The record is a 61-nucleotide RNA from Parvularcula marina, which matches "Whalefall-1 RNA" in Rfam. The match comes from Rfam's covariance-model search (40 bits). By type it is a small RNA.
RNA sequence: UCACCUCUCCCUCGGAGGAGGGAGAGGUCGAAGGUCAGCUUACUGACCUUCGGGUGAGGGU
Numbered sequence: 001u002c003a004c005c006u007c008u009c010c011c012u013c014g015g016a017g018g019a020g021g022g023a024g025a026g027g028u029c030g031a032a033g034g035u036c037a038g039c040u041u042a043c044u045g046a047c048c049u050u051c052g053g054g055u056g057a058g059g060g061u
Stems, first nucleotide, its partner, number of pairs: 004027010030051009
Dot-bracket structure: ...((((((((((....))))))))))..(((((((((....)))))))))..........